Small nucleolar RNA R66: an 81-nucleotide sequence from Hibiscus trionum.
The family's RNA type in Rfam is C/D-box small nucleolar RNA.
Pairs were carried over by alignment from the consensus structure, which was predicted with PFOLD.
On this family, see Chen et al., Nucleic Acids Res 2003: "The high diversity of snoRNAs in plants: identification and comparative study of 120 snoRNA genes from Oryza sativa".

[Rfam]
RNA sequence: UCCGAUGAUGGCAUGAUAUCUUUGAGACCUGAUCAUUUUUGUUUAUGUUUGAUGAAAACUACAAGCAAAUUUACUGAGGAU
Numbered sequence: 001u002c003c004g005a006u007g008a009u010g011g012c013a014u015g016a017u018a019u020c021u022u023u024g025a026g027a028c029c030u031g032a033u034c035a036u037u038u039u040u041g042u043u044u045a046u047g048u049u050u051g052a053u054g055a056a057a058a059c060u061a062c063a064a065g066c067a068a069a070u071u072u073a074c075u076g077a078g079g080a081u
Base pairs, nucleotide, nucleotide: 001080002079003078032050034047035046

Rfam links the family to the GO terms nucleolus and RNA processing.